Shown here is a 113-nucleotide RNA from Otolemur garnettii, a member of the family "U4atac minor spliceosomal RNA". U4atac is an essential component of the minor U12-type spliceosome complex which is required for removal of the rarer class of eukaryotic introns (AT-AC, U12-type). The family's consensus secondary structure is taken from published work. A reference for the family is Lorkovic et al. (2005), "Evolutionary conservation of minor U12-type spliceosome between plants and humans", RNA. Rfam links the family to the GO terms mRNA 5'-splice site recognition, spliceosomal tri-snRNP complex assembly and U4atac snRNP.
[Rfam]
RNA sequence: ACUAUCCUUUUCUUGGGGUUGUGCUACUGUCCUUUGAGCACAUAGGGAGGGCAGUACUGCUAGCACCCAUAAAAAAUUCUUUCUUCUGCUUGGUCUAAUCUACUCUUGAAAAU
Dot-bracket structure: .....((((.....))))..(((..(((((((......(.....)...)))))))..))).......................(((...(.(((...))).).....)))...